[Rfam]
RNA sequence: GAUUGAUAAAGGCAAAUCCAUUGAAAAGUGGAGACGCAAAACUAUAGGGACUAAGGAACUAUUCUAUGUUUGCCAGCUGCCAAC
Numbered sequence: 001g002a003u004u005g006a007u008a009a010a011g012g013c014a015a016a017u018c019c020a021u022u023g024a025a026a027a028g029u030g031g032a033g034a035c036g037c038a039a040a041a042c043u044a045u046a047g048g049g050a051c052u053a054a055g056g057a058a059c060u061a062u063u064c065u066a067u068g069u070u071u072g073c074c075a076g077c078u079g080c081c082a083a084c
Stems, first nucleotide, its partner, number of pairs: 012037002017032006040078001042076002047074002049070003056064003

A member of the RNA family "c-di-GMP-I riboswitch aptamer" from Bacillus mesophilus, 84 nucleotides long.
The base pairs follow the family's consensus structure, which is taken from published work.